[Rfam]
This 83-nucleotide RNA sequence from Pichia californica belongs to the Rfam family "tRNA".
Rfam links the family to the GO term triplet codon-amino acid adaptor activity.
The family's consensus secondary structure is taken from published work.
By type it is a transfer RNA.
It scores 53 bits against the family's covariance model.
From the family's description: Transfer RNA (tRNA) molecules are approximately 80 nucleotides in length. Their secondary structure includes four short double-helical elements and three loops (D, anti-codon, and T loops). Further hydrogen bonds mediate the characteristic L-shaped molecular structure. tRNAs have two regions of fundamental functional importance: the anti-codon, which is responsible for specific mRNA codon recognition, and the 3' end, to which the tRNAs corresponding amino acid is attached (by aminoacyl-tRNA synthetases). tRNAs cope with the degeneracy of the genetic code in two manners: having more than one tRNA (with a specific anti-codon) for a particular amino acid; and 'wobble' base-pairing, i.e. permitting non-standard base-pairing at the 3rd anti-codon position.
RNA sequence: GGGUGUGUGGCCGAGAGGUUAAGGCGUCAGGAUCAGAACCUGAUUUUCUUAGGAUUUCCUGGGUUCGAACCCCAGCAUACUCA
Numbered sequence: 001g002g003g004u005g006u007g008u009g010g011c012c013g014a015g016a017g018g019u020u021a022a023g024g025c026g027u028c029a030g031g032a033u034c035a036g037a038a039c040c041u042g043a044u045u046u047u048c049u050u051a052g053g054a055u056u057u058c059c060u061g062g063g064u065u066c067g068a069a070c071c072c073c074a075g076c077a078u079a080c081u082c083a
Base pairs, nucleotide, nucleotide: 001082002081003080004079005078006077007076010025011024012023027043028042029041030040031039059075060074061073062072063071